The family of this 511-nucleotide RNA from Streptomyces sp. Mg1 is "Saccharopolyspora sRNA 350". The match comes from Rfam's covariance-model search (126 bits). The source organism's lineage runs through Bacteria, Bacillati, Actinomycetota, Actinomycetes and Streptomyces. The literature on the family includes a 2013 paper in PLoS One by Liu et al., "Prediction and characterization of small non-coding RNAs related to secondary metabolites in Saccharopolyspora erythraea".

Nucleotides: 511
Stems, first nucleotide, its partner, number of pairs: 006390003011385002014382002019328002024321002027318001031316002038310003045305001047303004052298001054233001058229001060227005065111001068108001075103001077102003082097003117222003122217001127212001129210002132206001134204001138203003141199003147192002152189002155186003160177001235295003240290002243287003249283001251281002254278001256277003262269001329342004354376004360372001362370002391431007399423003403418003407415001437476002440473001443470002446467001447465003451461002478509001480505003484501002486497003
Number, partner (000 for none) and nucleotide at each position: 001000g002000u003000g004000g005000c006390g007389g008388u009000g010000u011385a012384g013000u014382c015381c016000c017000a018000c019328g020327u021000c022000c023000c024321c025320g026000c027318g028000c029000c030000g031316u032315c033000g034000a035000g036000g037000a038310g039309g040308g041000c042000g043000u044000g045305g046000u047303c048302g049301c050300c051000g052298a053000a054233g055000c056000g057000g058229u059000c060227g061226c062225c063224g064223u065111c066000c067000g068108c069000g070000a071000g072000c073000a074000c075103g076000c077102c078101g079100a080000c081000g082097g083096c084095g085000a086000g087000c088000u089000c090000g091000u092000c093000g094000c095084c096083g097082u098000a099000c100079u101078u102077g103075c104000c105000g106000a107000c108068g109000g110000c111065g112000g113000u114000c115000u116000g117222g118221u119220u120000g121000a122217u123000c124000c125000g126000g127212c128000c129210g130209u131000g132206g133000g134204c135000g136000a137000u138203c139202a140201g141199g142198u143197g144000g145000a146000u147192c148191c149000c150000g151000c152189c153188c154000g155186c156185g157184g158000g159000g160177g161000a162000a163000c164000c165000c166000c167000g168000c169000u170000c171000g172000a173000c174000c175000a176000g177160c178000a179000c180000c181000u182000c183000a184157c185156c186155g187000g188153g189152g190000c191148g192147g193000a194000a195000g196000u197143c198142g199141c200000g201140c202139u203138g204134g205000a206132c207000g208000c209130a210129c211000c212127g213000g214000c215000c216000c217122g218000c219000g220119a221118g222117c223064g224063c225062g226061g227060u228000c229058a230000g231000c232000a233054c234000c235295u236294c237293c238000a239000c240290g241289u242000c243287g244286u245285c246000g247000a248000a249283c250000c251281c252280g253000c254278g255000c256277a257276g258275c259000a260000u261000g262269g263000c264000g265000a266000u267000c268000u269262c270000g271000c272000c273000g274000a275258g276257c277256u278254c279000a280252c281251g282000c283249g284000g285245g286244a287243u288000c289241a290240c291000c292000c293237g294236g295235a296000c297000g298052u299000g300050g301049g302048c303047g304000c305045c306000g307000u308040c309039c310038u311000g312000g313000a314000c315032g316031a317000a318027c319000u320025c321024g322000a323000u324000g325000c326000g327020g328019c329342c330341g331340u332339c333000g334000c335000c336000g337000a338000c339332g340331g341330u342329g343000u344000a345000g346000g347000u348000c349000a350000g351000c352000c353000u354376g355375c356374g357373g358000u359000u360372c361000a362370c363369c364000c365000g366000g367000u368000a369363g370362g371000c372360g373357c374356c375355g376354c377000c378000c379000u380000u381015g382014g383000u384012c385011u386000c387000g388008a389007c390006c391431c392430a393429g394428g395427g396426g397425a398000g399423c400422a401421u402000c403418c404417u405416c406000a407415g408000c409000a410000g411000c412000c413000a414000g415407c416405g417404g418403g419000a420000g421401g422400u423399g424000a425397u426396c427395u428394c429393c430392u431391g432000c433000a434000u435000c436000u437476g438475c439000g440473g441000g442000g443470c444469g445000g446467a447465c448464u449463u450000g451461g452460u453000c454000g455000u456000g457000g458000u459000g460452g461451c462000g463449a464448g465447g466000u467446u468000g469444c470443g471000g472000g473440c474000g475438g476437c477000c478509g479000c480505c481504g482503u483000a484501c485500c486497c487496a488495g489000g490000c491000u492000g493000g494000u495488c496487u497486g498000c499000c500485g501484g502000g503482g504481c505480g506000g507000c508000u509478c510000c511000a